[Rfam]
RNA sequence: UUACUGGUAACGGUAAGGUAUGAAGGAAGCCCUAGAGGACAUAUGGAACAUAACGCAAGUAAACCAAGUAUUGGCUAGUAAAGUGGAUAACCUUGCAAAAAGUAGGAAAGUCCUAAUUUCGGUAGUAACUUUAUUAGUUUUUAUGGAUGUGUUCAUAUGGGGCAGGCAAGC
Numbered sequence: 001u002u003a004c005u006g007g008u009a010a011c012g013g014u015a016a017g018g019u020a021u022g023a024a025g026g027a028a029g030c031c032c033u034a035g036a037g038g039a040c041a042u043a044u045g046g047a048a049c050a051u052a053a054c055g056c057a058a059g060u061a062a063a064c065c066a067a068g069u070a071u072u073g074g075c076u077a078g079u080a081a082a083g084u085g086g087a088u089a090a091c092c093u094u095g096c097a098a099a100a101a102g103u104a105g106g107a108a109a110g111u112c113c114u115a116a117u118u119u120c121g122g123u124a125g126u127a128a129c130u131u132u133a134u135u136a137g138u139u140u141u142u143a144u145g146g147a148u149g150u151g152u153u154c155a156u157a158u159g160g161g162g163c164a165g166g167c168a169a170g171c
Base pairs, nucleotide, nucleotide: 001016002015003014004013005012006011029171030170037163041158042157043156044155045154046153048150049149050148051147064146065145066144068142074138075137076136078134079133080132081131082130083129084128085113086112087111088110091106092105093104

Group II catalytic intron D1-D4-3: a 171-nucleotide sequence from Clostridium puniceum.